[Rfam]
RNA sequence: AUCCUGCCGCUGCCCGGAUCGAUCCGUCUCGAUAUGCGUACGGCAGGAGCGGGGGACCCAGGUCAGUCGCCGUGAACACUCCUCGACGAGUGCACGGCUUGGGGUGAAGUCGCAGCUCAGAAGCCAUACGUGGCCCUGGCGAGCGACCGGGCAUCUCCAGUCCGAACCCGACAGCUCACCUCGCAGGCGUUGGAGAGAGGAAUA
Number, nucleotide and partner (000 for none) at each position: 001a000002u048003c047004c046005u045006g044007c043008c042009g041010c000011u000012g000013c000014c000015c000016g000017g000018a000019u000020c000021g000022a000023u000024c000025c000026g000027u000028c000029u000030c000031g000032a000033u000034a000035u000036g000037c000038g000039u000040a000041c009042g008043g007044c006045a005046g004047g003048a002049g184050c183051g182052g181053g180054g179055g000056a000057c000058c000059c101060a100061g099062g098063u097064c096065a000066g000067u000068c000069g000070c000071c000072g000073u000074g000075a000076a000077c000078a000079c000080u000081c000082c000083u000084c000085g000086a000087c000088g000089a000090g000091u000092g000093c000094a000095c000096g064097g063098c062099u061100u060101g059102g169103g168104g167105u000106g000107a000108a000109g000110u146111c145112g144113c143114a000115g000116c000117u000118c000119a000120g000121a000122a000123g000124c000125c000126a000127u000128a000129c000130g000131u000132g000133g000134c000135c000136c000137u000138g000139g000140c000141g000142a000143g113144c112145g111146a110147c000148c000149g163150g162151g161152c160153a000154u000155c000156u000157c000158c000159a000160g152161u151162c150163c149164g000165a000166a000167c104168c103169c102170g000171a000172c000173a000174g000175c000176u000177c000178a000179c054180c053181u052182c051183g050184c049185a000186g000187g000188c000189g000190u000191u000192g000193g000194a000195g000196a000197g000198a000199g000200g000201a000202a000203u000204a000
c-di-AMP riboswitch aptamer (ydaO/yuaA leader): a 204-nucleotide sequence from Streptomyces sp. DJ. This family represents a conserved RNA structure found upstream of the ydaO and yuaA genes in Bacillus subtilis and related genes in other bacteria.